[Rfam]
RNA sequence: GGGGCUGAUUGCAAUGCUGGUGCUUGUCAUGGUCUUCAAAACCAUUCGUGAGGCGCGUGCCGUCUCAGGUGGGUUCGAUUCCCACGCAGUCCC
Numbered sequence: 001g002g003g004g005c006u007g008a009u010u011g012c013a014a015u016g017c018u019g020g021u022g023c024u025u026g027u028c029a030u031g032g033u034c035u036u037c038a039a040a041a042c043c044a045u046u047c048g049u050g051a052g053g054c055g056c057g058u059g060c061c062g063u064c065u066c067a068g069g070u071g072g073g074u075u076c077g078a079u080u081c082c083c084a085c086g087c088a089g090u091c092c093c
Stems, first nucleotide, its partner, number of pairs: 001093007011027004016023002029045005049067005070084004
Dot-bracket structure: (((((((...((((.((....)))))).(((((.......)))))...(((((.........)))))..((((.......))))..)))))))
The family of this 93-nucleotide RNA sequence from Bacillus sp. THAF10 is "Selenocysteine transfer RNA".
The source organism's lineage runs through Bacteria, Bacillati, Bacillota, Caryophanales and Bacillus.
The match comes from Rfam's covariance-model search (59 bits).
A reference for the family is Mizutani and Goto (2000), "Eukaryotic selenocysteine tRNA has the 9/4 secondary structure", FEBS Lett.